mir-3473 microRNA precursor family: a 77-nucleotide RNA from Jaculus jaculus.
Lineage of the source: Eukaryota > Bilateria > Euteleostomi > Myomorpha > Jaculus.
It scores 75 bits against the family's covariance model.
Gene Ontology terms of the family: cellular response to mechanical stimulus, miRNA-mediated post-transcriptional gene silencing and RISC complex.
[Rfam]
RNA sequence: ACCACUAAGCCAUCUCUCCAGCCCCCGAGUUAUGUUUUUCUUAAAUAUUUUUGGGGCUGGAGAGAUGGCUUAGCGGU
Number, nucleotide and partner (000 for none) at each position: 001a000002c076003c075004a000005c073006u072007a071008a070009g069010c068011c067012a066013u065014c064015u063016c062017u061018c060019c059020a058021g057022c056023c055024c054025c000026c000027g000028a000029g000030u000031u000032a000033u000034g000035u000036u000037u000038u000039u000040c000041u000042u000043a000044a000045a000046u000047a000048u000049u000050u000051u000052u000053g000054g024055g023056g022057c021058u020059g019060g018061a017062g016063a015064g014065a013066u012067g011068g010069c009070u008071u007072a006073g005074c000075g003076g002077u000